[Rfam]
RNA sequence: UCGGUUCCGGUUCACGUCCGCGCGCUAACGCAAGGGCGACCCGGCGGCU
Numbered sequence: 001u002c003g004g005u006u007c008c009g010g011u012u013c014a015c016g017u018c019c020g021c022g023c024g025c026u027a028a029c030g031c032a033a034g035g036g037c038g039a040c041c042c043g044g045c046g047g048c049u
Base pairs, nucleotide, nucleotide: 003049004048005047007044008043009042010041015038016037017036018035019034022031023030
About this RNA:
The family of this 49-nucleotide sequence is "L31-Actinobacteria ribosomal protein leader". It is one of the family's seed sequences.